[Rfam]
RNA sequence: AGGUGGGCCACCUUUCCCCAACGAGAGGCUGACUAUCUGAGAGGAUAGACUAU
Numbered sequence: 001a002g003g004u005g006g007g008c009c010a011c012c013u014u015u016c017c018c019c020a021a022c023g024a025g026a027g028g029c030u031g032a033c034u035a036u037c038u039g040a041g042a043g044g045a046u047a048g049a050c051u052a053u
Base pairs, nucleotide, nucleotide: 011028012027013026014025015024016023033048034047035046036045037044038043

The family of this 53-nucleotide RNA sequence from Candidatus Tokpelaia hoelldobleri is "serC leader".
It scores 61 bits against the family's covariance model.
Lineage of the source: Bacteria > Pseudomonadota > Alphaproteobacteria > Hyphomicrobiales > Candidatus Tokpelaia.